[Rfam]
RNA sequence: AUAGGCUCGACAAAGUAACCCCUCGCGGGUGAAAUCAAUGCCUUUGCAAAAGGGGUGUGCAACCUUUCCGCAAAACGGAUAAAUAAAUACCCCGAUGUAGUCAAUCGGACGCUACUUGCAUUGCCGUCUAUUGUGGUAUGGCGGUUUAAUGGUUGGUACUACGGGCAAUCCGAACUCCACAACGAUAAUAAGAUUGUACGGGGUAUUUUCUAUCGAAAUGAACAGC
Numbered sequence: 001a002u003a004g005g006c007u008c009g010a011c012a013a014a015g016u017a018a019c020c021c022c023u024c025g026c027g028g029g030u031g032a033a034a035u036c037a038a039u040g041c042c043u044u045u046g047c048a049a050a051a052g053g054g055g056u057g058u059g060c061a062a063c064c065u066u067u068c069c070g071c072a073a074a075a076c077g078g079a080u081a082a083a084u085a086a087a088u089a090c091c092c093c094g095a096u097g098u099a100g101u102c103a104a105u106c107g108g109a110c111g112c113u114a115c116u117u118g119c120a121u122u123g124c125c126g127u128c129u130a131u132u133g134u135g136g137u138a139u140g141g142c143g144g145u146u147u148a149a150u151g152g153u154u155g156g157u158a159c160u161a162c163g164g165g166c167a168a169u170c171c172g173a174a175c176u177c178c179a180c181a182a183c184g185a186u187a188a189u190a191a192g193a194u195u196g197u198a199c200g201g202g203g204u205a206u207u208u209u210c211u212a213u214c215g216a217a218a219u220g221a222a223c224a225g226c
Stems, first nucleotide, its partner, number of pairs: 004042003019029002067079004087206008096198001097162005102155005111119002123145006165197005172183001
Dot-bracket structure: ...(((............((.......))..........)))........................((((.....)))).......((((((((.(((((((((((....((.....))...((((((...........)))))).....)))))..)))))..(((((..(..........).........))))))))))))))....................
RT-2 RNA: a 226-nucleotide RNA. The family's consensus secondary structure is taken from published work. The family's RNA type in Rfam is small RNA. It is one of the family's seed sequences.